A member of the RNA family "mir-92 microRNA precursor family" from Rattus norvegicus, 78 nucleotides long.
Its family is annotated with miRNA-mediated post-transcriptional gene silencing and RISC complex in the Gene Ontology.
This family represents the microRNA precursor mir-92. Human miR-92 has two predicted hairpin precursor sequences: mir-92-1 on chromosome 13 and mir-92-2 on chromosome X. miR-92 has also been cloned from mouse embryonic stem cells. The mature sequence is excised from the 3' arm of the hairpin.
Rfam 15.1 lists 1,347 matches to the family in 653 species.
The base pairs follow the family's consensus structure, which was predicted with PFOLD.
[Rfam]
RNA sequence: CUUUCUACACAGGUUGGGAUUUGUCGCAAUGCUGUGUUUCUGUAUAGUAUUGCACUUGUCCCGGCCUGUUGAGUUUGG
Numbered sequence: 001c002u003u004u005c006u007a008c009a010c011a012g013g014u015u016g017g018g019a020u021u022u023g024u025c026g027c028a029a030u031g032c033u034g035u036g037u038u039u040c041u042g043u044a045u046a047g048u049a050u051u052g053c054a055c056u057u058g059u060c061c062c063g064g065c066c067u068g069u070u071g072a073g074u075u076u077g078g
Base pairs, nucleotide, nucleotide: 005073006072009069010068011067012066013065014064016062017061018060019059020058023055024054026053027052028051029050030049031048032047033046034045